[Rfam]
RNA sequence: GCCUAGGAUGAUGUUAUCCAAUUAGUUUAGAUGUGGUGGAACUGAGACCCUGUUUACAGGGAGAACCCCUUGGGGAAAAUAUAUUUGUUUGAGAAUAAUGGAUCUAACUGAGGC
Dot-bracket structure: (((............................................(((((....)))))..................................................)))

The record is a 114-nucleotide sequence from Papaver somniferum, which matches "Small nucleolar RNA Z278" in Rfam. Rfam describes the family as follows. snoZ278 is a C/D box small nucleolar RNA. Its methylation guide targets have not been reported. The source organism's lineage runs through Eukaryota, Embryophyta, Magnoliopsida, Ranunculales and Papaver. The family's consensus secondary structure was predicted with PFOLD. By type it is a C/D-box small nucleolar RNA. Its family is annotated with nucleolus and RNA processing in the Gene Ontology. On this family, see Chen et al., Nucleic Acids Res 2003: "The high diversity of snoRNAs in plants: identification and comparative study of 120 snoRNA genes from Oryza sativa".